Annotation: This 102-nucleotide RNA from Pontibacillus chungwhensis belongs to the Rfam family "Purine riboswitch aptamer". The match comes from Rfam's covariance-model search (81 bits). Its family is annotated with purine nucleobase biosynthetic process in the Gene Ontology.
[Rfam]
RNA sequence: CUACACUUCACUUCAUUUCCUUGUAUAAGUUCGAGAAUAGGGCUCGAACGUAUCUACUAAGCUACCGUAAAUAGCUAGGCUACAAGGGAUUUCGUUUAUCUA
Dot-bracket structure: .................((((((((...(((((((.......)))))))........(.(((((.......))))).)..))))))))..............
Numbered sequence: 001c002u003a004c005a006c007u008u009c010a011c012u013u014c015a016u017u018u019c020c021u022u023g024u025a026u027a028a029g030u031u032c033g034a035g036a037a038u039a040g041g042g043c044u045c046g047a048a049c050g051u052a053u054c055u056a057c058u059a060a061g062c063u064a065c066c067g068u069a070a071a072u073a074g075c076u077a078g079g080c081u082a083c084a085a086g087g088g089a090u091u092u093c094g095u096u097u098a099u100c101u102a
Stems, first nucleotide, its partner, number of pairs: 018088008029049007058078001060076005